[Rfam]
mir-221 microRNA precursor family: an 84-nucleotide RNA from Alligator mississippiensis.
Taxonomically the source falls in Alligator (Eukaryota, Chordata, Sarcopterygii, Archelosauria).
For this family Rfam cites "MicroRNA profile of Marek's disease virus-transformed T-cell line MSB-1: predominance of virus-encoded microRNAs" (Yao et al., J Virol, 2008).
The family has 72 seed sequences and 1,797 matches in Rfam 15.1.
RNA sequence: UGGGGCAUGAACCUGGCAUACAAUGUAGAUUUCUGUAUUUCUUAAGCAACAGCUACAUUGUCUGCUGGGUUUCAAGCUGCCUGG
Numbered sequence: 001u002g003g004g005g006c007a008u009g010a011a012c013c014u015g016g017c018a019u020a021c022a023a024u025g026u027a028g029a030u031u032u033c034u035g036u037a038u039u040u041c042u043u044a045a046g047c048a049a050c051a052g053c054u055a056c057a058u059u060g061u062c063u064g065c066u067g068g069g070u071u072u073c074a075a076g077c078u079g080c081c082u083g084g
Stems, first nucleotide, its partner, number of pairs: 013068006020061009033052004